[Rfam]
RNA sequence: GUUGUCGGAUUCACCUCAAUCCACAUGUGUUGGAGUGGAUUGAGGUGGAAUUUAGUUCAAUUUCCACUUCAAGCCACCUCAACACACGUGGAUUGAUGCGGAUCCGACU
Numbered sequence: 001g002u003u004g005u006c007g008g009a010u011u012c013a014c015c016u017c018a019a020u021c022c023a024c025a026u027g028u029g030u031u032g033g034a035g036u037g038g039a040u041u042g043a044g045g046u047g048g049a050a051u052u053u054a055g056u057u058c059a060a061u062u063u064c065c066a067c068u069u070c071a072a073g074c075c076a077c078c079u080c081a082a083c084a085c086a087c088g089u090g091g092a093u094u095g096a097u098g099c100g101g102a103u104c105c106g107a108c109u
Stems, first nucleotide, its partner, number of pairs: 004108009014098001016096009026086007035077004040072004045067003
RNA: MIR5565 microRNA precursor family
Organism: Sorghum bicolor